A member of the RNA family "mir-2040 microRNA precursor family" from Chionoecetes opilio, 78 nucleotides long. The match comes from Rfam's covariance-model search (54 bits). NCBI's taxonomy places the organism under Eukaryota, Bilateria, Mandibulata, Altocrustacea, Chionoecetes. Rfam links the family to the GO terms miRNA-mediated post-transcriptional gene silencing and RISC complex. The base pairs follow the family's consensus structure, which was predicted with RNAalifold.
[Rfam]
RNA sequence: AACGGAAGCAGACCUGAGUGCGGUUAUGAUACAAAUGAUCUCAUUUGUAUCAUAACCGCACUCAGGUCUGCUUCCGUU
Numbered sequence: 001a002a003c004g005g006a007a008g009c010a011g012a013c014c015u016g017a018g019u020g021c022g023g024u025u026a027u028g029a030u031a032c033a034a035a036u037g038a039u040c041u042c043a044u045u046u047g048u049a050u051c052a053u054a055a056c057c058g059c060a061c062u063c064a065g066g067u068c069u070g071c072u073u074c075c076g077u078u
Base pairs, nucleotide, nucleotide: 001078002077003076004075005074006073008071009070011068012067013066014065015064016063017062018061019060021058022057023056025054026053027052028051029050031048032047033046034045035044036043037042
Dot-bracket structure: ((((((.((.(((((((((.(((.(((((.(((((((....))))))).))))).))).))))))))).)).))))))